[Rfam]
The record is a 69-nucleotide RNA from Sulfuriferula sp. AH1, which matches "int-alpA RNA" in Rfam.
RNA sequence: GCUGCACCCUACCUCGACGGAGGGAAAACAGGGUUGCCCCGCCCUACUGGUGCGGCUUCUUAUUCGGGG
Dot-bracket structure: ((((((((...((((....))))......((((...[[[..))))...)))))))).........]]].
Numbered sequence: 001g002c003u004g005c006a007c008c009c010u011a012c013c014u015c016g017a018c019g020g021a022g023g024g025a026a027a028a029c030a031g032g033g034u035u036g037c038c039c040c041g042c043c044c045u046a047c048u049g050g051u052g053c054g055g056c057u058u059c060u061u062a063u064u065c066g067g068g069g
Stems, first nucleotide, its partner, number of pairs: 001056008012023004030045004037068003
Rfam classes the family as a small RNA. The source organism's lineage runs through Bacteria, Pseudomonadati, Betaproteobacteria, Nitrosomonadales and Sulfuriferula.